[Rfam]
RNA sequence: GGGCGCAGCCCUCCUUGGGCGUUUCCUCCCUAGACUUGGGCCGGCGCAAGCCGGCCUUUUUUUCUUGGAGGC
Numbered sequence: 001g002g003g004c005g006c007a008g009c010c011c012u013c014c015u016u017g018g019g020c021g022u023u024u025c026c027u028c029c030c031u032a033g034a035c036u037u038g039g040g041c042c043g044g045c046g047c048a049a050g051c052c053g054g055c056c057u058u059u060u061u062u063u064c065u066u067g068g069a070g071g072c
Stems, first nucleotide, its partner, number of pairs: 008020004038057008
RNA: Makes More Granules Regulator RNA (mmgR)